U11 spliceosomal RNA: a 129-nucleotide sequence from Oreotrochilus melanogaster. A search with the family's covariance model found it, with a score of 104 bits. Gene Ontology terms of the family: U11 snRNP, pre-mRNA 5'-splice site binding and mRNA 5'-splice site recognition. The family has 72 seed sequences and 2,595 matches in Rfam 15.1. The family's RNA type in Rfam is spliceosomal small nuclear RNA. Taxonomically the source falls in Oreotrochilus (Eukaryota, Eumetazoa, Euteleostomi, Archelosauria). The family is grouped with related families in Rfam's "U1 clan".
RNA sequence: AAAAAGGGCUUCUGCCGUGAGUGGCACGGGGGGGUCACGUGGCCGCCCCCGCGGAAUCGACAUCAAGAGAUUUCGGAAGCACAAUUUUUGUGAGGGGGGCGCCGGUAACCGCUGAGUUCCGGCACCCCG
Numbered sequence: 001a002a003a004a005a006g007g008g009c010u011u012c013u014g015c016c017g018u019g020a021g022u023g024g025c026a027c028g029g030g031g032g033g034g035u036c037a038c039g040u041g042g043c044c045g046c047c048c049c050c051g052c053g054g055a056a057u058c059g060a061c062a063u064c065a066a067g068a069g070a071u072u073u074c075g076g077a078a079g080c081a082c083a084a085u086u087u088u089u090g091u092g093a094g095g096g097g098g099g100c101g102c103c104g105g106u107a108a109c110c111g112c113u114g115a116g117u118u119c120c121g122g123c124a125c126c127c128c129g
Stems, first nucleotide, its partner, number of pairs: 008080005013026005027051006034044001035042002052075007096127003101123005107118003110114001